This 457-nucleotide RNA from Coprinopsis cinerea belongs to the Rfam family "Nuclear RNase P". The family is grouped with related families in Rfam's "RNaseP clan". The family's RNA type in Rfam is ribozyme.
RNA sequence: ACAGACGAAAAACCGCGAGGCUCGCACAGAACAGAAAGUAAGGGCUUUGCCCGAGCCCUUUGCUUUCGUAUUCGCGAGCGGGUUAAGGUCUGAGUAUUCUAGUCAUUCUCGAUCGGUCCUAGCUGGACCAAGGCUUUAACGAGCCUUCGCAACGUAUCAGAAAUCCGACUUGCAGCUCUCCAGCUUCCUCGAGGCAGCCCAACGACUGGAUCUAUCCAGGAGGGUGGUUCUCCUCUCUUCGUGAUUGGGGAAGGCGGGCUGUGGGUCAUGGAAGUCGUUGCAAUGACCGGGUUGGCCAUGUAAAGCAAGGCUGUUGUUGUGCUCUUUCGGGCACUGGACGGUUUCCCCUGGGUGGCUUGAUCCUUUAGCUCACUUCGCGGUGCGCCAGUUACGGGCGGCCUUUUCCCUCGGGAGGGGUCGUCUUGGUGUAACUCGAUUCAGACUACUCUUCGUCUGU
Numbered sequence: 001a002c003a004g005a006c007g008a009a010a011a012a013c014c015g016c017g018a019g020g021c022u023c024g025c026a027c028a029g030a031a032c033a034g035a036a037a038g039u040a041a042g043g044g045c046u047u048u049g050c051c052c053g054a055g056c057c058c059u060u061u062g063c064u065u066u067c068g069u070a071u072u073c074g075c076g077a078g079c080g081g082g083u084u085a086a087g088g089u090c091u092g093a094g095u096a097u098u099c100u101a102g103u104c105a106u107u108c109u110c111g112a113u114c115g116g117u118c119c120u121a122g123c124u125g126g127a128c129c130a131a132g133g134c135u136u137u138a139a140c141g142a143g144c145c146u147u148c149g150c151a152a153c154g155u156a157u158c159a160g161a162a163a164u165c166c167g168a169c170u171u172g173c174a175g176c177u178c179u180c181c182a183g184c185u186u187c188c189u190c191g192a193g194g195c196a197g198c199c200c201a202a203c204g205a206c207u208g209g210a211u212c213u214a215u216c217c218a219g220g221a222g223g224g225u226g227g228u229u230c231u232c233c234u235c236u237c238u239u240c241g242u243g244a245u246u247g248g249g250g251a252a253g254g255c256g257g258g259c260u261g262u263g264g265g266u267c268a269u270g271g272a273a274g275u276c277g278u279u280g281c282a283a284u285g286a287c288c289g290g291g292u293u294g295g296c297c298a299u300g301u302a303a304a305g306c307a308a309g310g311c312u313g314u315u316g317u318u319g320u321g322c323u324c325u326u327u328c329g330g331g332c333a334c335u336g337g338a339c340g341g342u343u344u345c346c347c348c349u350g351g352g353u354g355g356c357u358u359g360a361u362c363c364u365u366u367a368g369c370u371c372a373c374u375u376c377g378c379g380g381u382g383c384g385c386c387a388g389u390u391a392c393g394g395g396c397g398g399c400c401u402u403u404u405c406c407c408u409c410g411g412g413a414g415g416g417g418u419c420g421u422c423u424u425g426g427u428g429u430a431a432c433u434c435g436a437u438u439c440a441g442a443c444u445a446c447u448c449u450u451c452g453u454c455u456g457u
Stems, first nucleotide, its partner, number of pairs: 001457004007451003012381007020079005040060008090441005115129005130147006149281006167267012382429007